[Rfam]
RNA sequence: GUCCCUUCCGAGCUCGAGUCCGGACGGGGGUGGGGGACCCACAGCUGACGCCUCCCGCGUCUGGGGGUGAAGCCGCACCGCGCGGCCGGGCACCCGAUCGCCCGAACCCGACAGCUAACCCCGCCGGCGGCGAUCGGAGGAUGC
Numbered sequence: 001g002u003c004c005c006u007u008c009c010g011a012g013c014u015c016g017a018g019u020c021c022g023g024a025c026g027g028g029g030g031u032g033g034g035g036g037a038c039c040c041a042c043a044g045c046u047g048a049c050g051c052c053u054c055c056c057g058c059g060u061c062u063g064g065g066g067g068u069g070a071a072g073c074c075g076c077a078c079c080g081c082g083c084g085g086c087c088g089g090g091c092a093c094c095c096g097a098u099c100g101c102c103c104g105a106a107c108c109c110g111a112c113a114g115c116u117a118a119c120c121c122c123g124c125c126g127g128c129g130g131c132g133a134u135c136g137g138a139g140g141a142u143g144c
Stems, first nucleotide, its partner, number of pairs: 006129001008127002013029003030124006040064001065109003073085004088103004
RNA: c-di-AMP riboswitch aptamer (ydaO/yuaA leader)
Organism: Geodermatophilus sp. TF02-6